[Rfam]
Source information: The family of this 38-nucleotide sequence from Cajanus cajan is "Plastid psbT antisense RNA". The family has 93 seed sequences and 1,866 matches in Rfam 15.1. The match comes from Rfam's covariance-model search (56 bits).
RNA sequence: GUAGUUAGAUCUCCAAGUUUUUGGAAGGUUCCAAAUUC
Numbered sequence: 001g002u003a004g005u006u007a008g009a010u011c012u013c014c015a016a017g018u019u020u021u022u023g024g025a026a027g028g029u030u031c032c033a034a035a036u037u038c
Stems, first nucleotide, its partner, number of pairs: 003018001005016002008013001020035006